[Rfam]
RNA sequence: GGCAAGAUGGCCGAGCGGUCUAAGGCGCUAGCUUCAGGUUCUUCAGAACUUGCUAGUCAAGUAAUUGGCGUGGGUUCGAAUCCCACUCUUGUCA
Numbered sequence: 001g002g003c004a005a006g007a008u009g010g011c012c013g014a015g016c017g018g019u020c021u022a023a024g025g026c027g028c029u030a031g032c033u034u035c036a037g038g039u040u041c042u043u044c045a046g047a048a049c050u051u052g053c054u055a056g057u058c059a060a061g062u063a064a065u066u067g068g069c070g071u072g073g074g075u076u077c078g079a080a081u082c083c084c085a086c087u088c089u090u091g092u093c094a
Stems, first nucleotide, its partner, number of pairs: 001093007010026003028056005070086005